[Rfam]
The record is a 167-nucleotide sequence from Nannospalax galili, which matches "Small nucleolar RNA SNORA81" in Rfam. Its family is annotated with nucleolus and RNA processing in the Gene Ontology. It scores 58 bits against the family's covariance model. By type it is an H/ACA-box small nucleolar RNA. NCBI's taxonomy places the organism under Eukaryota, Opisthokonta, Bilateria, Vertebrata, Nannospalax. Rfam 15.1 lists 1,161 matches to the family in 643 species. The literature on the family includes a 2005 paper in Nucleic Acids Res by Gu et al., "A novel experimental approach for systematic identification of box H/ACA snoRNAs from eukaryotes".
RNA sequence: ACCUUCUCAAAUGAAGCCCCAUGCUAAAACUGCAAAAAGCAGGAUCACAUCUUGAUUUAAAGUUAGCAGAGUACACACAGGAAAAGCAGUAAGUGCAGUGGGUCCCGGAGGCUGGGCUGGACCUCGUUCUUUUUUUAAAUUAUUUUUAUUUUAUGUUUGUGAGAGUA
Numbered sequence: 001a002c003c004u005u006c007u008c009a010a011a012u013g014a015a016g017c018c019c020c021a022u023g024c025u026a027a028a029a030c031u032g033c034a035a036a037a038a039g040c041a042g043g044a045u046c047a048c049a050u051c052u053u054g055a056u057u058u059a060a061a062g063u064u065a066g067c068a069g070a071g072u073a074c075a076c077a078c079a080g081g082a083a084a085a086g087c088a089g090u091a092a093g094u095g096c097a098g099u100g101g102g103u104c105c106c107g108g109a110g111g112c113u114g115g116g117c118u119g120g121a122c123c124u125c126g127u128u129c130u131u132u133u134u135u136u137a138a139a140u141u142a143u144u145u146u147u148a149u150u151u152u153a154u155g156u157u158u159g160u161g162a163g164a165g166u167a
Stems, first nucleotide, its partner, number of pairs: 019071001022068005031059002038056001040054006094164001098160005114141001118137004